[Rfam]
RNA sequence: GUCGAGAGGGCGGAGAAUACAAUACCCGAAAGGGGAAUAAUCCCAGCCUACUUGUUGAGGCUUACGAACCUCUCGACACCCUAUU
Dot-bracket structure: (((((((((...(.((........(((....)))......)).)(((((........)))))......)))))))))........
RNA: sRNA-Xcc1
Organism: Actinobacillus succinogenes